[Rfam]
RNA sequence: AAGACCGGAAGAGGUGCGUUGUUCAGGUAACUAAUACGAGAAGACUAAGCUUCAUUUGAGUGUUAGCCAGGGGGAUAUACGCCGAGAAAUUGCUGUACUUAGUUAUCAAGUAAUUUCGGUCAGAUUGGUUGAAUCUAACUGACUGUCACCAGAAUCGGUGGAGAGCUUUCGGCCCA
Numbered sequence: 001a002a003g004a005c006c007g008g009a010a011g012a013g014g015u016g017c018g019u020u021g022u023u024c025a026g027g028u029a030a031c032u033a034a035u036a037c038g039a040g041a042a043g044a045c046u047a048a049g050c051u052u053c054a055u056u057u058g059a060g061u062g063u064u065a066g067c068c069a070g071g072g073g074g075a076u077a078u079a080c081g082c083c084g085a086g087a088a089a090u091u092g093c094u095g096u097a098c099u100u101a102g103u104u105a106u107c108a109a110g111u112a113a114u115u116u117c118g119g120u121c122a123g124a125u126u127g128g129u130u131g132a133a134u135c136u137a138a139c140u141g142a143c144u145g146u147c148a149c150c151a152g153a154a155u156c157g158g159u160g161g162a163g164a165g166c167u168u169u170c171g172g173c174c175c176a
Stems, first nucleotide, its partner, number of pairs: 006171006016082004023075002031066007086117009097106001118144006125138004146161005
The record is a 176-nucleotide RNA sequence from Catenovulum agarivorans, which matches "Lysine riboswitch aptamer" in Rfam. The match comes from Rfam's covariance-model search (79 bits). From the family's description: Riboswitches are metabolite binding domains within certain messenger RNAs that serve as precision sensors for their corresponding targets. The organism belongs to Catenovulum agarivorans, within Bacteria.